[Rfam]
RNA sequence: UAGUAGGAACCCGUAGAUCCGAACUUGUGUUUCUAUGGCCUCACAAGUUCGUAUUUAACGGGACCUACUAC
Numbered sequence: 001u002a003g004u005a006g007g008a009a010c011c012c013g014u015a016g017a018u019c020c021g022a023a024c025u026u027g028u029g030u031u032u033c034u035a036u037g038g039c040c041u042c043a044c045a046a047g048u049u050c051g052u053a054u055u056u057a058a059c060g061g062g063a064c065c066u067a068c069u070a071c
Base pairs, nucleotide, nucleotide: 002069003068004067005066006065007064010061011060015056016055017054018053020051021050022049023048024047025046026045027044028043029042
RNA: mir-10 microRNA precursor family